[Rfam]
RNA sequence: GCCCCGAAAGCUCUAACCCACACACGUAUCGACACGGUGACCUGGGUGCCCCGAUCCACGGAUCGCGGGUUGGUCAUUGGGAUGCGUGGAGGCCCAAC
Numbered sequence: 001g002c003c004c005c006g007a008a009a010g011c012u013c014u015a016a017c018c019c020a021c022a023c024a025c026g027u028a029u030c031g032a033c034a035c036g037g038u039g040a041c042c043u044g045g046g047u048g049c050c051c052c053g054a055u056c057c058a059c060g061g062a063u064c065g066c067g068g069g070u071u072g073g074u075c076a077u078u079g080g081g082a083u084g085c086g087u088g089g090a091g092g093c094c095c096a097a098c
Stems, first nucleotide, its partner, number of pairs: 023088008035079008048070004

This 98-nucleotide sequence from Pseudomonas japonica belongs to the Rfam family "t44 RNA". By type it is a small RNA. The literature on the family includes a 2002 paper in Nucleic Acids Res by Tjaden et al., "Transcriptome analysis of Escherichia coli using high-density oligonucleotide probe arrays". The source organism's lineage runs through Bacteria, Gammaproteobacteria, Pseudomonadales, Pseudomonadaceae and Pseudomonas.